[Rfam]
The record is a 146-nucleotide RNA from Ornithinibacillus caprae, which matches "FMN riboswitch aptamer (RFN element)" in Rfam. The literature on the family includes a 2002 paper in Nucleic Acids Res by Vitreschak et al., "Regulation of riboflavin biosynthesis and transport genes in bacteria by transcriptional and translational attenuation".
RNA sequence: UUCCAUCUUCGGGGCAGGGUGCAAUUCCCGACCGACGGUAAAUGAACAUAGUUCUAAGUCCGUGACCCGUAAAGUUUCUUUCCUUUGCGGUUGACCUGGUGUAAAUCCAGGACCGACAGUUAUAGUCUGGAUGGGAGAAGAUGACG
Numbered sequence: 001u002u003c004c005a006u007c008u009u010c011g012g013g014g015c016a017g018g019g020u021g022c023a024a025u026u027c028c029c030g031a032c033c034g035a036c037g038g039u040a041a042a043u044g045a046a047c048a049u050a051g052u053u054c055u056a057a058g059u060c061c062g063u064g065a066c067c068c069g070u071a072a073a074g075u076u077u078c079u080u081u082c083c084u085u086u087g088c089g090g091u092u093g094a095c096c097u098g099g100u101g102u103a104a105a106u107c108c109a110g111g112a113c114c115g116a117c118a119g120u121u122a123u124a125g126u127c128u129g130g131a132u133g134g135g136a137g138a139a140g141a142u143g144a145c146g
Stems, first nucleotide, its partner, number of pairs: 004143007017029003031126002033115002035063004058113002067090004095111005117129003